Bacterial large subunit ribosomal RNA: a 225-nucleotide part of an RNA from uncultured bacterium 70. Gene Ontology terms of the family: structural constituent of ribosome and ribosome.
RNA sequence: UAGUUAUUCUCAGUGGCAAGGUUAAGCGUAAGCGAGCCGCAGCGAAAGCGAGUCCGAAAUGGGCGAAUAGUCGCUGGGAAUAGACGCGAAGCGAGGUGAUCUAUCCAUGGUCAGAGUGAAGCGCGGGUAACACCGCGUGGAGGCUCGAACCGGUGUUGGUUGAAAACAGCUCGGAUGAACUGUGGAUAGGGGUGAAAGGCUAAUCAAACCUCGUGAUUGCCCGUU
Numbered sequence: 001u002a003g004u005u006a007u008u009c010u011c012a013g014u015g016g017c018a019a020g021g022u023u024a025a026g027c028g029u030a031a032g033c034g035a036g037c038c039g040c041a042g043c044g045a046a047a048g049c050g051a052g053u054c055c056g057a058a059a060u061g062g063g064c065g066a067a068u069a070g071u072c073g074c075u076g077g078g079a080a081u082a083g084a085c086g087c088g089a090a091g092c093g094a095g096g097u098g099a100u101c102u103a104u105c106c107a108u109g110g111u112c113a114g115a116g117u118g119a120a121g122c123g124c125g126g127g128u129a130a131c132a133c134c135g136c137g138u139g140g141a142g143g144c145u146c147g148a149a150c151c152g153g154u155g156u157u158g159g160u161u162g163a164a165a166a167c168a169g170c171u172c173g174g175a176u177g178a179a180c181u182g183u184g185g186a187u188a189g190g191g192g193u194g195a196a197a198g199g200c201u202a203a204u205c206a207a208a209c210c211u212c213g214u215g216a217u218u219g220c221c222c223g224u225u
Base pairs, nucleotide, nucleotide: 005082006081007080008079009078010077011076012075013074014073015072016071017070020038021037022036023035026033027032042049043048052064053063054062055061085223086222088220092213093212094211095210096209097208101189102188103187104186105185106184107183108182109181110180111179112177114146115145116144117143121138122137123136124135125134126133150174151173152172155170156169157168158167191201192200193199
It is one of the family's seed sequences. Pairs were carried over by alignment from the consensus structure, which is taken from published work.